[Rfam]
RNA: Small nucleolar RNA SNORD58
Organism: Erinaceus europaeus
RNA sequence: UUGCUAUGAUGUCAAUCUUAGGACACCUUUGGAUUAACCAUGAAAAUAAAAUGUACUCUGAGCAAC
Numbered sequence: 001u002u003g004c005u006a007u008g009a010u011g012u013c014a015a016u017c018u019u020a021g022g023a024c025a026c027c028u029u030u031g032g033a034u035u036a037a038c039c040a041u042g043a044a045a046a047u048a049a050a051a052u053g054u055a056c057u058c059u060g061a062g063c064a065a066c
Stems, first nucleotide, its partner, number of pairs: 001065004